[Rfam]
A member of the RNA family "U7 small nuclear RNA" from Macaca mulatta, 63 nucleotides long. The source organism's lineage runs through Eukaryota, Vertebrata, Gnathostomata, Euarchontoglires and Macaca.

RNA sequence: UAGUGUUACAGCUCUUUUAGAAUUUGUCUAGUGGGGCUUUUGGUUUUUGCUGGAAAGUCCCCU
Numbered sequence: 001u002a003g004u005g006u007u008a009c010a011g012c013u014c015u016u017u018u019a020g021a022a023u024u025u026g027u028c029u030a031g032u033g034g035g036g037c038u039u040u041u042g043g044u045u046u047u048u049g050c051u052g053g054a055a056a057g058u059c060c061c062c063u
Base pairs, nucleotide, nucleotide: 034060035059036058037057038056039055040054041053042051043050044049